[Rfam]
RNA sequence: ACACGUGAAGGGAGGUGGUCCAACAGAUGAGUUUCACUUGGACGCGUGAGGUGACUGCCCGCUAGUCGCCCGAGAGCAUCGGACGGAUUGCCUUCCGGUCCCGCCGCUCAGCGGCAGCGAGACCCCGGCAGUCACCGCAGCCCGUGGGUGCCGUGCAUUCGUCCAGCACGGCGCGCCGACAUCCGGCAGCCCACGGGCUGUUCCAC
Numbered sequence: 001a002c003a004c005g006u007g008a009a010g011g012g013a014g015g016u017g018g019u020c021c022a023a024c025a026g027a028u029g030a031g032u033u034u035c036a037c038u039u040g041g042a043c044g045c046g047u048g049a050g051g052u053g054a055c056u057g058c059c060c061g062c063u064a065g066u067c068g069c070c071c072g073a074g075a076g077c078a079u080c081g082g083a084c085g086g087a088u089u090g091c092c093u094u095c096c097g098g099u100c101c102c103g104c105c106g107c108u109c110a111g112c113g114g115c116a117g118c119g120a121g122a123c124c125c126c127g128g129c130a131g132u133c134a135c136c137g138c139a140g141c142c143c144g145u146g147g148g149u150g151c152c153g154u155g156c157a158u159u160c161g162u163c164c165a166g167c168a169c170g171g172c173g174c175g176c177c178g179a180c181a182u183c184c185g186g187c188a189g190c191c192c193a194c195g196g197g198c199u200g201u202u203c204c205a206c
Stems, first nucleotide, its partner, number of pairs: 014059006060119004066113001068112002074109003138200012151171006
The family of this 206-nucleotide RNA from Actinotalea fermentans is "Actinobacteria sRNA Ms_IGR-5". The organism belongs to Actinotalea, within Bacteria. On this family, see Li et al., RNA 2013: "Identification of small RNAs in Mycobacterium smegmatis using heterologous Hfq".